This 61-nucleotide RNA from Microctonus hyperodae belongs to the Rfam family "mir-14 microRNA precursor family". Rfam links the family to the GO terms miRNA-mediated post-transcriptional gene silencing and RISC complex. The family's consensus secondary structure was predicted with RNAalifold. Taxonomically the source falls in Microctonus (Eukaryota, Eumetazoa, Bilateria, Altocrustacea).
RNA sequence: ACUGGGGGUGAGAAUUUGGCUUGACUCUGAUUAAACAGUCAGUCUUUUUCUCUCUCCUAUC
Numbered sequence: 001a002c003u004g005g006g007g008g009u010g011a012g013a014a015u016u017u018g019g020c021u022u023g024a025c026u027c028u029g030a031u032u033a034a035a036c037a038g039u040c041a042g043u044c045u046u047u048u049u050c051u052c053u054c055u056c057c058u059a060u061c
Base pairs, nucleotide, nucleotide: 003059004058005057006056007055008054010052011051012050013049018044019043020042021041024039025038026037028035